[Rfam]
The family of this 106-nucleotide sequence from Acerihabitans arboris is "Yersinia sRNA 224". For this family Rfam cites "Transcriptomic profiling of Yersinia pseudotuberculosis reveals reprogramming of the Crp regulon by temperature and uncovers Crp as a master regulator of small RNAs" (Nuss et al., PLoS Genet, 2015). Lineage of the source: Bacteria > Pseudomonadati > Pseudomonadota > Gammaproteobacteria > Acerihabitans. Pairs were carried over by alignment from the consensus structure. Gene Ontology term of the family: response to temperature stimulus.

RNA sequence: GAGGUUGAUGACAACGUGUGUCGAAGAGUGAAAAUGGUAGAUCGUAAAGACGCUGCAAGUACGUCCUUGUAAGCUCGAGCCGCGCCAACCUUCGCGCGGACGUUUU
Numbered sequence: 001g002a003g004g005u006u007g008a009u010g011a012c013a014a015c016g017u018g019u020g021u022c023g024a025a026g027a028g029u030g031a032a033a034a035u036g037g038u039a040g041a042u043c044g045u046a047a048a049g050a051c052g053c054u055g056c057a058a059g060u061a062c063g064u065c066c067u068u069g070u071a072a073g074c075u076c077g078a079g080c081c082g083c084g085c086c087a088a089c090c091u092u093c094g095c096g097c098g099g100a101c102g103u104u105u106u
Stems, first nucleotide, its partner, number of pairs: 013106002016103003021027002030076002040065003044062003051055001080099006087092001